RNA sequence: GCCAGCACUAAUUAAGCUUAAGGACUUACAUUCAGGGUAUUCAUUACUCUCCUUAGUCCUGGGAAGGUCUGAGACUCGCACCUGAAUUCACACCUCCUAGCCGGAGGCUUUCCGAACAGGGAAGGCAAGGGAACAAGAAAUAGCGGUAAGUGGAAGCGUGUGCUUGGGACGCAGUAAUGCUGAAGCUGUGCUUCUGCUCUAUCGGUGGAAACUCUUGUGGUGAGCCGUUUUAGUGGGAUUAGCUUGGCGUAAUUUCUUACGUAACUCAAUUCAGACUAGUCUAGUGCUGGC
Numbered sequence: 001g002c003c004a005g006c007a008c009u010a011a012u013u014a015a016g017c018u019u020a021a022g023g024a025c026u027u028a029c030a031u032u033c034a035g036g037g038u039a040u041u042c043a044u045u046a047c048u049c050u051c052c053u054u055a056g057u058c059c060u061g062g063g064a065a066g067g068u069c070u071g072a073g074a075c076u077c078g079c080a081c082c083u084g085a086a087u088u089c090a091c092a093c094c095u096c097c098u099a100g101c102c103g104g105a106g107g108c109u110u111u112c113c114g115a116a117c118a119g120g121g122a123a124g125g126c127a128a129g130g131g132a133a134c135a136a137g138a139a140a141u142a143g144c145g146g147u148a149a150g151u152g153g154a155a156g157c158g159u160g161u162g163c164u165u166g167g168g169a170c171g172c173a174g175u176a177a178u179g180c181u182g183a184a185g186c187u188g189u190g191c192u193u194c195u196g197c198u199c200u201a202u203c204g205g206u207g208g209a210a211a212c213u214c215u216u217g218u219g220g221u222g223a224g225c226c227g228u229u230u231u232a233g234u235g236g237g238a239u240u241a242g243c244u245u246g247g248c249g250u251a252a253u254u255u256c257u258u259a260c261g262u263a264a265c266u267c268a269a270u271u272c273a274g275a276c277u278a279g280u281c282u283a284g285u286g287c288u289g290g291c
Stems, first nucleotide, its partner, number of pairs: 001291004008284003013246006021060005035049005069274005079222004093107005108124006125218007144204005247262006

Nuclear RNase P: a 291-nucleotide RNA from Bemisia tabaci. Rfam describes the family as follows. Ribonuclease P (RNase P) is a ubiquitous endoribonuclease, found in archaea, bacteria and eukarya as well as chloroplasts and mitochondria. By type it is a ribozyme. The source organism's lineage runs through Eukaryota, Ecdysozoa, Arthropoda, Pterygota and Bemisia.